Background
mir-30 microRNA precursor family: a 77-nucleotide RNA sequence from Clupea harengus. The literature on the family includes a 2001 paper in Science by Lagos-Quintana et al., "Identification of novel genes coding for small expressed RNAs".
RNA sequence: UCUGUUGCUGUAAACAUCCCCGACUGGAAGCUGUGCCAAAACAUCUGAGCUUUCAGUUGGAUGUUUGCUGCCACAGG
Numbered sequence: 001u002c003u004g005u006u007g008c009u010g011u012a013a014a015c016a017u018c019c020c021c022g023a024c025u026g027g028a029a030g031c032u033g034u035g036c037c038a039a040a041a042c043a044u045c046u047g048a049g050c051u052u053u054c055a056g057u058u059g060g061a062u063g064u065u066u067g068c069u070g071c072c073a074c075a076g077g
Stems, first nucleotide, its partner, number of pairs: 002076004008070001010068010023057010

Rfam's curators write: This family consists of the mammalian microRNA (miRNA) precursor mir-30a. Animal miRNAs are transcribed as ~70nt precursors and subsequently processed by the Dicer enzyme to give a ~22nt product. In this case the mature sequence comes from both the 3' (miR-30) and 5' (mir-97-6) arms of the precursor. The extents of the hairpin precursors are not generally known and are estimated based on hairpin prediction.